The record is a 361-nucleotide RNA from Ketobacter sp., which matches "Bacterial RNase P class A" in Rfam. A search with the family's covariance model found it, with a score of 327 bits.
RNA sequence: AGAGUCAGCCAGGCAGUCGCUCUUGAUCAGGUUUGUCCUGGUCGGGGGAGGAAAGUCCGGGCUCCAUAGGGUAAGGUGCCAGGUAACGCCUGGGCGGUGAAAACCGACGGAAAGUGCAGCAGAAAGUAUACCGCCUAAGCCAGUUCGCUGGCCGGUAAGGUUGAAAAGGUGCGGUAAGAGCGCACCGCGCGACUGGUAACAGAUCGUGGCGAUGGAAAACCCCACCCGGAGCAAGACCAAAUAGGAAUCCAUUGGCGUGACCCGCGCUGGAUUCGGGUAGGUUGCUAGAGGCGCACGGUGACGCGCGUCCCAGAGGAAUGACUGUCCACGACAGAACCCGGCUUAUCGGCUGACUCUAUAU
Numbered sequence: 001a002g003a004g005u006c007a008g009c010c011a012g013g014c015a016g017u018c019g020c021u022c023u024u025g026a027u028c029a030g031g032u033u034u035g036u037c038c039u040g041g042u043c044g045g046g047g048g049a050g051g052a053a054a055g056u057c058c059g060g061g062c063u064c065c066a067u068a069g070g071g072u073a074a075g076g077u078g079c080c081a082g083g084u085a086a087c088g089c090c091u092g093g094g095c096g097g098u099g100a101a102a103a104c105c106g107a108c109g110g111a112a113a114g115u116g117c118a119g120c121a122g123a124a125a126g127u128a129u130a131c132c133g134c135c136u137a138a139g140c141c142a143g144u145u146c147g148c149u150g151g152c153c154g155g156u157a158a159g160g161u162u163g164a165a166a167a168g169g170u171g172c173g174g175u176a177a178g179a180g181c182g183c184a185c186c187g188c189g190c191g192a193c194u195g196g197u198a199a200c201a202g203a204u205c206g207u208g209g210c211g212a213u214g215g216a217a218a219a220c221c222c223c224a225c226c227c228g229g230a231g232c233a234a235g236a237c238c239a240a241a242u243a244g245g246a247a248u249c250c251a252u253u254g255g256c257g258u259g260a261c262c263c264g265c266g267c268u269g270g271a272u273u274c275g276g277g278u279a280g281g282u283u284g285c286u287a288g289a290g291g292c293g294c295a296c297g298g299u300g301a302c303g304c305g306c307g308u309c310c311c312a313g314a315g316g317a318a319u320g321a322c323u324g325u326c327c328a329c330g331a332c333a334g335a336a337c338c339c340g341g342c343u344u345a346u347c348g349g350c351u352g353a354c355u356c357u358a359u360a361u
Stems, first nucleotide, its partner, number of pairs: 001357010011346001012326007020048011053344003057341005062231004069263004075226004079093005094108001095106004109222002114220002117215001131160002133156003139152005168186006187210001188208005193202003235283004245274006254268005290309005296303002